[Rfam]
RNA sequence: CAUGAUCAGACAUAUUCUUAUCGUGGUGGGAAGGCGCAUGGGCAGGGUGGUGUAACCACCCGGCGACAGCCACCCAUGCGCAAACGAGGCUCCUCAAGGGGCCUUUUUUUAUGCCCGGA
Numbered sequence: 001c002a003u004g005a006u007c008a009g010a011c012a013u014a015u016u017c018u019u020a021u022c023g024u025g026g027u028g029g030g031a032a033g034g035c036g037c038a039u040g041g042g043c044a045g046g047g048u049g050g051u052g053u054a055a056c057c058a059c060c061c062g063g064c065g066a067c068a069g070c071c072a073c074c075c076a077u078g079c080g081c082a083a084a085c086g087a088g089g090c091u092c093c094u095c096a097a098g099g100g101g102c103c104u105u106u107u108u109u110u111a112u113g114c115c116c117g118g119a
Stems, first nucleotide, its partner, number of pairs: 007028001029116002034081009045061006063070002086105008
RNA: Rhizobiales sRNA Atu_C8